[Rfam]
RNA sequence: GUGCUGUGAUGUCUUUACCAACACAUCAUUCUGACCCAUAAUAUGGGGAAGGUUCUUGUCUAACUGAGCACA
Numbered sequence: 001g002u003g004c005u006g007u008g009a010u011g012u013c014u015u016u017a018c019c020a021a022c023a024c025a026u027c028a029u030u031c032u033g034a035c036c037c038a039u040a041a042u043a044u045g046g047g048g049a050a051g052g053u054u055c056u057u058g059u060c061u062a063a064c065u066g067a068g069c070a071c072a
Stems, first nucleotide, its partner, number of pairs: 001071004